[Rfam]
RNA sequence: AUCCAUGCUUCCAUGGGACCUGCCAACGUGGCAGCCUCCCUUCCUAGACAUGGUAGAGCAGGCGGCCCCCCUUGCCUCUUGGCAUAGCUCCUCCCUCGUCCGUUGGUGAGAGACUCUGACUUGGGCAAGGGACAGGU
Dot-bracket structure: ..(((((.......((((.(((((.....)))))..))))........)))))...................((.(..(((.((...(((...((.........))...))).........))..)))..).))...
RNA: Small nucleolar RNA SNORA24
Organism: Phrynocephalus forsythii